Description: epsC RNA: a 111-nucleotide sequence from Paenibacillus ferrarius. The family's consensus secondary structure is taken from published work. Rfam 15.1 lists 450 matches to the family in 334 species. Taxonomically the source falls in Paenibacillus (Bacteria, Bacillota, Bacilli, Caryophanales).
[Rfam]
RNA sequence: CGGUGAUGCCUCCUUACCGUUAUCCAAGGAAGUACUCGAUCAUGCUGUGGGCGAUGCAAGCCUUAGACGCCAGUCGUCAAAAGUGUGGUGCGAGGCAGGGUUAGAUGCCCU
Numbered sequence: 001c002g003g004u005g006a007u008g009c010c011u012c013c014u015u016a017c018c019g020u021u022a023u024c025c026a027a028g029g030a031a032g033u034a035c036u037c038g039a040u041c042a043u044g045c046u047g048u049g050g051g052c053g054a055u056g057c058a059a060g061c062c063u064u065a066g067a068c069g070c071c072a073g074u075c076g077u078c079a080a081a082a083g084u085g086u087g088g089u090g091c092g093a094g095g096c097a098g099g100g101u102u103a104g105a106u107g108c109c110c111u
Base pairs, nucleotide, nucleotide: 001019002018003017004016007034008033009032011030012029013028035094036093037092038091039089040088041087042086043085044084045083046082049063050062051061052060066078067077068076069075097111098110099109100108101107